[Rfam]
RNA: c-di-AMP riboswitch aptamer (ydaO/yuaA leader)
Organism: Okeania hirsuta
RNA sequence: AAAGACAGUCAGCCUAAUCCGGCAAGUAAAGACACAGUAAGAGUGUAGCUGGAGCGGAGGAACCAAAUACAGGGGGCUUAUCUCUGAUUAGAAGUCUUUGAAUGUAGAAAAACAAAGAUACAGAGAAGGGAAUCUCUCAGCCCUAGCCCGUCAGCUAACUUCGUAGGCAUUGAGAGGAGAAUGA
Numbered sequence: 001a002a003a004g005a006c007a008g009u010c011a012g013c014c015u016a017a018u019c020c021g022g023c024a025a026g027u028a029a030a031g032a033c034a035c036a037g038u039a040a041g042a043g044u045g046u047a048g049c050u051g052g053a054g055c056g057g058a059g060g061a062a063c064c065a066a067a068u069a070c071a072g073g074g075g076g077c078u079u080a081u082c083u084c085u086g087a088u089u090a091g092a093a094g095u096c097u098u099u100g101a102a103u104g105u106a107g108a109a110a111a112a113c114a115a116a117g118a119u120a121c122a123g124a125g126a127a128g129g130g131a132a133u134c135u136c137u138c139a140g141c142c143c144u145a146g147c148c149c150g151u152c153a154g155c156u157a158a159c160u161u162c163g164u165a166g167g168c169a170u171u172g173a174g175a176g177g178a179g180a181a182u183g184a
Base pairs, nucleotide, nucleotide: 012168013167014166018053019052020051021050022049023048054164055163056162057161058160059159064073074149075148076147082125083124084123085122128143129142130141